This 67-nucleotide RNA from Psychrobacillus soli belongs to the Rfam family "Bacillaceae-1 RNA".
RNA sequence: CACAGAUGAACAAAGGCUAAGAGCGCCACAUCGUGUGGUAACUCCUUCGUGAUCAACAUUCUGUUGG
Numbered sequence: 001c002a003c004a005g006a007u008g009a010a011c012a013a014a015g016g017c018u019a020a021g022a023g024c025g026c027c028a029c030a031u032c033g034u035g036u037g038g039u040a041a042c043u044c045c046u047u048c049g050u051g052a053u054c055a056a057c058a059u060u061c062u063g064u065u066g067g
Stems, first nucleotide, its partner, number of pairs: 011049001013047004025039005053067005

Rfam classes the family as a small RNA.